[Rfam]
RNA sequence: GGAAUUCGCCGGGACAUACUCCUCCUCCCAAUGUCCCUGCGAUAUGACUGGCAGCACUCCUCCUCCCAGCUGUCAGUCGCGUAAAAAGACGCUCGCUGGAUCUCCUCCCCCAGCGAGCGUUUUUU
Numbered sequence: 001g002g003a004a005u006u007c008g009c010c011g012g013g014a015c016a017u018a019c020u021c022c023u024c025c026u027c028c029c030a031a032u033g034u035c036c037c038u039g040c041g042a043u044a045u046g047a048c049u050g051g052c053a054g055c056a057c058u059c060c061u062c063c064u065c066c067c068a069g070c071u072g073u074c075a076g077u078c079g080c081g082u083a084a085a086a087a088g089a090c091g092c093u094c095g096c097u098g099g100a101u102c103u104c105c106u107c108c109c110c111c112a113g114c115g116a117g118c119g120u121u122u123u124u125u
Base pairs, nucleotide, nucleotide: 007041008040009039011037012036013035014034015033016032017031046078047077048076049075050074051073052072053071054070055069089120090119091118092117093116094115095114096113097112098111099110

Notes:
The record is a 125-nucleotide RNA sequence from Hoeflea prorocentri, which matches "Alphaproteobacterial ar14" in Rfam. Gene Ontology term of the family: biological process involved in symbiotic interaction. About the family: Smr14C2 was renamed NfeR1 (Nodule Formation Efficiency RNA) highly expressed in salt stress and during the symbiotic interaction on legume roots. A search with the family's covariance model found it, with a score of 121 bits.